[Rfam]
Rfam assigns this 169-nucleotide RNA sequence from Halosegnis rubeus to the family "Sense overlapping transcript RNA 0042 (sot)". A search with the family's covariance model found it, with a score of 142 bits. Lineage of the source: Archaea > Halobacteria > Halobacteriales > Natronomonadaceae > Halosegnis. A reference for the family is Gomes-Filho et al. (2015), "Sense overlapping transcripts in IS1341-type transposase genes are functional non-coding RNAs in archaea", RNA Biol. It is associated with IS1341-type transposase (tnpB) genes, at the 3'-end in H. salinarum NRC-1. The tetraloop structural motif may be functional.

RNA sequence: AAGUAUCUCCGAGUCCUGAUGGAGAGGAUAGGAGUAACGGCUGGUUGGCACAGCCAUCGACGUACCUGUUCGAUUCAGAGAGCGGAUGCUUUGCAUCGCGAGAACAGGAUUCGUCGUAAACCACAAUAUCCCAACGGCGGUCGGGAAUCCUCGCGCUUCAGAGCGGGGA
Numbered sequence: 001a002a003g004u005a006u007c008u009c010c011g012a013g014u015c016c017u018g019a020u021g022g023a024g025a026g027g028a029u030a031g032g033a034g035u036a037a038c039g040g041c042u043g044g045u046u047g048g049c050a051c052a053g054c055c056a057u058c059g060a061c062g063u064a065c066c067u068g069u070u071c072g073a074u075u076c077a078g079a080g081a082g083c084g085g086a087u088g089c090u091u092u093g094c095a096u097c098g099c100g101a102g103a104a105c106a107g108g109a110u111u112c113g114u115c116g117u118a119a120a121c122c123a124c125a126a127u128a129u130c131c132c133a134a135c136g137g138c139g140g141u142c143g144g145g146a147a148u149c150c151u152c153g154c155g156c157u158u159c160a161g162a163g164c165g166g167g168g169a
Stems, first nucleotide, its partner, number of pairs: 003038002007034004013029005039055005058116005065108007085097005129146004134141002148169007156161001